The family of this 120-nucleotide RNA sequence from Pasteurellaceae bacterium 15-036681 is "Histidine operon leader". By type it is a cis-regulatory leader. Rfam describes the family as follows. At least 6 amino acid operons are known to be regulated by attenuation. In each a leader sequence of 150-200 bp is found upstream of the first gene in the operon. This leader sequence can assume two different secondary structures known as the terminator and the anti-terminator structure. In each case the leader also codes for very short peptide sequence that is rich in the end product amino acid of the operon. The terminator structure is recognised as a termination signal for RNA polymerase and the operon is not transcribed. This structure forms when the cell has an excess of the regulatory amino acid and ribosome movement over the leader transcript is not impeded. When there is a deficiency of the charged tRNA of the regulatory amino acid the ribosome translating the leader peptide stalls and the antiterminator structure can form. This allows RNA polymerase to transcribe the operon. In the Rfam alignment the consensus structure is of the terminator structure.
RNA sequence: UCACCACCACCAUUUACCUGAUUAAUCUUUCGGGCAUUUGGCGUGUGCGGAAGAUAGACUUCCGAGUACGCAUAGAGCAAAACAUCAACCCCUCGGAAGCAAUUCCGAGGGGUUUUUCUU
Number, nucleotide and partner (000 for none) at each position: 001u000002c000003a000004c000005c000006a000007c000008c045009a044010c043011c040012a039013u000014u000015u000016a000017c034018c033019u032020g031021a030022u000023u000024a000025a000026u000027c000028u000029u000030u021031c020032g019033g018034g017035c000036a000037u000038u000039u012040g011041g000042c000043g010044u009045g008046u065047g000048c064049g063050g062051a061052a060053g059054a000055u000056a000057g000058a000059c053060u052061u051062c050063c049064g048065a046066g000067u000068a000069c000070g000071c000072a000073u000074a000075g000076a000077g000078c000079a000080a000081a000082a000083c000084a117085u000086c000087a114088a113089c112090c111091c110092c109093u108094c107095g106096g105097a104098a103099g000100c000101a000102a000103u098104u097105c096106c095107g094108a093109g092110g091111g090112g089113u088114u087115u000116u000117u084118c000119u000120u000